Archaeal RNase P: a 281-nucleotide sequence from Methanobrevibacter smithii. Gene Ontology terms of the family: multimeric ribonuclease P complex, ribonuclease P activity and tRNA processing.

[Rfam]
RNA sequence: GCAAGUUAAAGACAGCUGUUGGUUUUUUAACUAAGGAAACUCCGCCCAUCGUUACAGACUAUGGCGUUGAAAAACGUAUACUGAGAGGUAUGACUCUGGAGCAGAAACGACACGUCUUUUAAUGGUUGACUAUGAUAUUUAAUUGAGGACAUUGAAAGAAUCGGUGAAACGGCCAUUCCAUAGGAUGCAAGAACAAAAAAUGCUGAUGACUACUGUAAGAGGCAAAAGUAGUUCGCUAAGAUGAAUGCUGUUAAACAGAAGGUGGGUUACUCUUAACAUGC
Numbered sequence: 001g002c003a004a005g006u007u008a009a010a011g012a013c014a015g016c017u018g019u020u021g022g023u024u025u026u027u028u029a030a031c032u033a034a035g036g037a038a039a040c041u042c043c044g045c046c047c048a049u050c051g052u053u054a055c056a057g058a059c060u061a062u063g064g065c066g067u068u069g070a071a072a073a074a075c076g077u078a079u080a081c082u083g084a085g086a087g088g089u090a091u092g093a094c095u096c097u098g099g100a101g102c103a104g105a106a107a108c109g110a111c112a113c114g115u116c117u118u119u120u121a122a123u124g125g126u127u128g129a130c131u132a133u134g135a136u137a138u139u140u141a142a143u144u145g146a147g148g149a150c151a152u153u154g155a156a157a158g159a160a161u162c163g164g165u166g167a168a169a170c171g172g173c174c175a176u177u178c179c180a181u182a183g184g185a186u187g188c189a190a191g192a193a194c195a196a197a198a199a200a201u202g203c204u205g206a207u208g209a210c211u212a213c214u215g216u217a218a219g220a221g222g223c224a225a226a227a228g229u230a231g232u233u234c235g236c237u238a239a240g241a242u243g244a245a246u247g248c249u250g251u252u253a254a255a256c257a258g259a260a261g262g263u264g265g266g267u268u269a270c271u272c273u274u275a276a277c278a279u280g281c
Stems, first nucleotide, its partner, number of pairs: 001281003005277005010271002012251005020033005038268003042265005047187004052217001059183005064077005078091005092178002097175003113163002116158008135143002191234004201224004
Rfam's curators write: Ribonuclease P (RNase P) is a ubiquitous endoribonuclease, found in archaea, bacteria and eukarya as well as chloroplasts and mitochondria. Its Rfam clan is "RNaseP clan".